[Rfam]
RNA sequence: AAGCCGUGCCUUUCAGGCAUCCUCUCCUAAAAACUUUUACAGCCGGGCUUCUGCCCGGCUUUUUUUUGGCUUGC
Number, nucleotide and partner (000 for none) at each position: 001a000002a000003g000004c000005c000006g000007u000008g018009c017010c016011u015012u000013u000014c000015a011016g010017g009018c008019a000020u000021c000022c000023u000024c000025u000026c000027c000028u000029a000030a000031a000032a000033a000034c000035u000036u000037u000038u000039a000040c000041a000042g059043c058044c057045g056046g055047g054048c053049u000050u000051c000052u000053g048054c047055c046056c045057g044058g043059c042060u000061u000062u000063u000064u000065u000066u000067u000068g000069g000070c000071u000072u000073g000074c000

The record is a 74-nucleotide RNA from Sphingomonas adhaesiva, which matches "Makes More Granules Regulator RNA (mmgR)" in Rfam. On this family, see Corbino et al., Genome Biol 2005: "Evidence for a second class of S-adenosylmethionine riboswitches and other regulatory RNA motifs in alpha-proteobacteria". NCBI's taxonomy places the organism under Bacteria, Pseudomonadati, Pseudomonadota, Sphingomonadales, Sphingomonas. From the family's description: SuhB later renamed mmgR (makes more granules regulator) was a putative non-coding RNA found multiple times in the Agrobacterium tumefaciens genome and related alpha-proteobacteria. It is annotated as a small RNA.